[Rfam]
RNA sequence: AAAGCAGGUUACAAGUACAGUUCUUCAUUUUGUGGAAGUAUUUUGUCACUGCACUGCUGAAGGAGAAGCCAUAUUGAUAGCUUCUGAUUUUACCUUUAUGAAUGUAAAAAUGACAGCUUGACAACGACAGCG
Numbered sequence: 001a002a003a004g005c006a007g008g009u010u011a012c013a014a015g016u017a018c019a020g021u022u023c024u025u026c027a028u029u030u031u032g033u034g035g036a037a038g039u040a041u042u043u044u045g046u047c048a049c050u051g052c053a054c055u056g057c058u059g060a061a062g063g064a065g066a067a068g069c070c071a072u073a074u075u076g077a078u079a080g081c082u083u084c085u086g087a088u089u090u091u092a093c094c095u096u097u098a099u100g101a102a103u104g105u106a107a108a109a110a111u112g113a114c115a116g117c118u119u120g121a122c123a124a125c126g127a128c129a130g131c132g
Stems, first nucleotide, its partner, number of pairs: 003058005018045002020041002023038004069126001072123001074121004085110001088109006095102002
RNA: Small nucleolar RNA SNORA69